[Rfam]
Shown here is a 90-nucleotide RNA from Komagataeibacter saccharivorans, a member of the family "Glycine riboswitch aptamer".
RNA sequence: GCCUGUCGACACGGGAGAGACUGGCCCAGCGCCAGCGCCGAAGGAGCAACCGCCCCGGAAACUCUCAGGCCAAAGGACCGGUCGGCCAAG
Numbered sequence: 001g002c003c004u005g006u007c008g009a010c011a012c013g014g015g016a017g018a019g020a021c022u023g024g025c026c027c028a029g030c031g032c033c034a035g036c037g038c039c040g041a042a043g044g045a046g047c048a049a050c051c052g053c054c055c056c057g058g059a060a061a062c063u064c065u066c067a068g069g070c071c072a073a074a075g076g077a078c079c080g081g082u083c084g085g086c087c088a089a090g
Stems, first nucleotide, its partner, number of pairs: 006085005012080003021035004037070003040066002044064003050058002
About this RNA: This family represents the bacterial glycine riboswitch. Glycine riboswitches usually consist of two metabolite-binding aptamers domains with similar structures in tandem. The aptamers cooperatively bind glycine to regulate the expression of downstream genes. In Bacillus subtilis, this riboswitch is found upstream of the gcvT operon which controls glycine degradation.